[Rfam]
RNA sequence: GAUUACAGUCAGUUUUGCAGGUUUGCAUCCCAGCUUGCUAAAAUUGCUGUGCAAAUCCAUGCAAAACUGAC
Numbered sequence: 001g002a003u004u005a006c007a008g009u010c011a012g013u014u015u016u017g018c019a020g021g022u023u024u025g026c027a028u029c030c031c032a033g034c035u036u037g038c039u040a041a042a043a044u045u046g047c048u049g050u051g052c053a054a055a056u057c058c059a060u061g062c063a064a065a066a067c068u069g070a071c
Base pairs, nucleotide, nucleotide: 008071009070010069011068012067013066014065015064016063017062018061019060020058021057022055023054024053025052026051027050028049032048033047034046

Rfam assigns this 71-nucleotide RNA sequence from Crypturellus undulatus to the family "mir-19 microRNA precursor family".
The family is grouped with related families in Rfam's "mir-19 clan".
A reference for the family is Houbaviy et al. (2003), "Embryonic stem cell-specific MicroRNAs", Dev Cell.
The family has 106 seed sequences and 2,337 matches in Rfam 15.1.
Its family is annotated with miRNA-mediated post-transcriptional gene silencing and RISC complex in the Gene Ontology.